[Rfam]
RNA sequence: UGGUCACAUGAUGUUUGAAAAUCACCACCCUCCGAAGCAGACUAAACGUUUGCAUUGCAGAAAUGUGAUAUUCUGAUGACUA
Numbered sequence: 001u002g003g004u005c006a007c008a009u010g011a012u013g014u015u016u017g018a019a020a021a022u023c024a025c026c027a028c029c030c031u032c033c034g035a036a037g038c039a040g041a042c043u044a045a046a047c048g049u050u051u052g053c054a055u056u057g058c059a060g061a062a063a064u065g066u067g068a069u070a071u072u073c074u075g076a077u078g079a080c081u082a
Stems, first nucleotide, its partner, number of pairs: 001082006
This 82-nucleotide RNA sequence from Leersia perrieri belongs to the Rfam family "Small nucleolar RNA Z185". The source organism's lineage runs through Eukaryota, Streptophytina, Liliopsida, Poales and Leersia.